RNA sequence: GGAAGAGUAAUCGACCGUGGGAAGGAAGCGCGAAUCGUAAAUCAUGAGCCGAGGUACACGAACUGCAUAGAAGGCGCUGCCGAGCAGGGCGAGCGGGCGAGAAACCGCAAAGCUCUUGUGGUCAAGGCGACGUGGCGUAAAUGCGGCGGUUGUGUGAUGAAGGAGUGCGGC
Number, nucleotide and partner (000 for none) at each position: 001g016002g015003a000004a000005g012006a011007g000008u000009a000010a000011u006012c005013g000014a000015c002016c001017g000018u000019g000020g000021g000022a000023a000024g000025g000026a000027a000028g171029c170030g000031c000032g000033a000034a000035u164036c163037g000038u000039a000040a000041a158042u157043c156044a155045u154046g153047a151048g150049c149050c148051g147052a000053g000054g000055u000056a000057c000058a000059c000060g000061a000062a000063c146064u145065g144066c143067a142068u141069a000070g000071a000072a000073g000074g138075c137076g136077c000078u134079g133080c132081c000082g000083a000084g128085c127086a000087g115088g114089g113090c112091g000092a000093g108094c107095g106096g105097g000098c000099g000100a000101g000102a000103a000104a000105c096106c095107g094108c093109a000110a000111a000112g090113c089114u088115c087116u000117u000118g000119u000120g000121g000122u000123c000124a000125a000126g000127g085128c084129g000130a000131c000132g080133u079134g078135g000136c076137g075138u074139a000140a000141a068142u067143g066144c065145g064146g063147c051148g050149g049150u048151u047152g000153u046154g045155u044156g043157a042158u041159g000160a000161a000162g000163g036164a035165g000166u000167g000168c000169g000170g029171c028
Shown here is a 171-nucleotide sequence from Massilia violaceinigra, a member of the family "Group II catalytic intron D1-D4-3". Rfam describes the family as follows. Group II introns are found in rRNA, tRNA and mRNA of organelles in fungi, plants and protists, and also in mRNA in bacteria. Its family is annotated with Group II intron splicing in the Gene Ontology.